RNA sequence: UGAACCAUAAUUAAUUAUAAAUGAAAACUAUUUUAAAUAAUACUUGGUGGUGGAGCAACACAACGUCAAACGUCGUGAAGUAGCUGCCGGUAUUUUUAAAUUAUCAUACAACAAAGGCUUGUC
Numbered sequence: 001u002g003a004a005c006c007a008u009a010a011u012u013a014a015u016u017a018u019a020a021a022u023g024a025a026a027a028c029u030a031u032u033u034u035a036a037a038u039a040a041u042a043c044u045u046g047g048u049g050g051u052g053g054a055g056c057a058a059c060a061c062a063a064c065g066u067c068a069a070a071c072g073u074c075g076u077g078a079a080g081u082a083g084c085u086g087c088c089g090g091u092a093u094u095u096u097u098a099a100a101u102u103a104u105c106a107u108a109c110a111a112c113a114a115a116g117g118c119u120u121g122u123c
Base pairs, nucleotide, nucleotide: 036102037101038100040097042095045092046091049088050087051086052085055084056083058081059080061075063073064072065071